This 101-nucleotide RNA sequence from Hujiaoplasma nucleasis belongs to the Rfam family "Purine riboswitch aptamer".
[Rfam]
RNA sequence: GCAUAUUUAAGAAGGUUGUAUUAUAUAUGAUUGAAGAUUUGGUUCAAUCGUCUCUACCCCAUACCGUUAAACUUGGGACUAUAAUACAUGAUAUAAACUAA
Numbered sequence: 001g002c003a004u005a006u007u008u009a010a011g012a013a014g015g016u017u018g019u020a021u022u023a024u025a026u027a028u029g030a031u032u033g034a035a036g037a038u039u040u041g042g043u044u045c046a047a048u049c050g051u052c053u054c055u056a057c058c059c060c061a062u063a064c065c066g067u068u069a070a071a072c073u074u075g076g077g078a079c080u081a082u083a084a085u086a087c088a089u090g091a092u093a094u095a096a097a098c099u100a101a
Stems, first nucleotide, its partner, number of pairs: 018087008029049007058077004
Dot-bracket structure: .................((((((((...(((((((.......)))))))........((((............))))..))))))))..............

The family's consensus secondary structure is taken from published work. The organism belongs to Hujiaoplasma, within Bacteria.